[Rfam]
Nucleotides: 122
Stems, first nucleotide, its partner, number of pairs: 010049001011047002014044002018040001022037002025034002051121005057115004062110001063105003067099002074092001077089002081086001
Number, partner (000 for none) and nucleotide at each position: 001000g002000c003000a004000a005000c006000c007000u008000c009000c010049a011047c012046a013000u014044c015043g016000c017000c018040c019000a020000c021000c022037a023036a024000a025034g026033c027000c028000u029000g030000g031000u032000g033026g034025u035000g036023u037022u038000c039000c040018g041000c042000u043015c044014g045000u046012u047011g048000c049010u050000g051121g052120g053119c054118a055117u056000c057115u058114c059113c060112u061000g062110g063105a064104u065103g066000u067099g068098g069000u070000u071000u072000g073000u074092g075000g076000g077089c078088g079000c080000u081086g082000u083000c084000u085000u086081c087000c088078u089077g090000g091000g092074c093000a094000a095000c096000u097000u098068c099067c100000c101000g102000g103065c104064g105063u106000u107000c108000g109000c110062c111000a112060a113059g114058g115057a116000c117055g118054u119053g120052c121051u122000g

Shown here is a 122-nucleotide RNA sequence from Inhella gelatinilytica, a member of the family "Burkholderia RNA 11". By type it is a small RNA. For this family Rfam cites "Experimental identification of small non-coding regulatory RNAs in the opportunistic human pathogen Burkholderia cenocepacia J2315" (Ramos et al., Genomics, 2013). The family's consensus secondary structure was predicted with RNAfold. Lineage of the source: Bacteria > Pseudomonadati > Pseudomonadota > Sphaerotilaceae > Inhella. Rfam links the family to the GO term protein binding. From the family's description: Co-purified with Hfq, expression confirmed by Northern blot. Predicted target marZ. Overlaps coding sequence.